[Rfam]
Nucleotides: 049
Stems, first nucleotide, its partner, number of pairs: 006048002009045003
Number, partner (000 for none) and nucleotide at each position: 001000c002000u003000a004000u005000a006048u007047u008000a009045u010044u011043c012000c013000u014000g015000a016000u017000a018000u019000u020000u021000g022000a023000g024000u025000u026000u027000u028000u029000c030000u031000c032000u033000c034000a035000u036000u037000c038000a039000u040000a041000g042000a043011g044010a045009a046000c047007g048006g049000a

The family of this 49-nucleotide sequence from Papaver somniferum is "Plastid-rpoB 5UTR RNA". Rfam classes the family as a cis-regulatory element. About the family: Plastid rpoB is a non-coding RNA (ncRNA) recognised in plastids. It was found in the 5 prime untranslated region (5UTR) of a chloroplast-encoded RNA polymerase subunit (rpoB) in plastids, suggesting a posible cis-regulatory function. A reference for the family is Richter et al. (2023), "Retrograde signaling in plants: A critical review focusing on the GUN pathway and beyond", Plant Commun. NCBI's taxonomy places the organism under Eukaryota, Streptophytina, Euphyllophyta, Mesangiospermae, Papaver.